[Rfam]
RNA: UnaL2 LINE 3' element
Organism: Triplophysa tibetana
RNA sequence: AAUGUAUAGCAAUGUUAGUCGCUUUGGAUAAAAGCGUCUGCCAAAUGCCUAAAU
Numbered sequence: 001a002a003u004g005u006a007u008a009g010c011a012a013u014g015u016u017a018g019u020c021g022c023u024u025u026g027g028a029u030a031a032a033a034g035c036g037u038c039u040g041c042c043a044a045a046u047g048c049c050u051a052a053a054u
Stems, first nucleotide, its partner, number of pairs: 013043001014041002020036006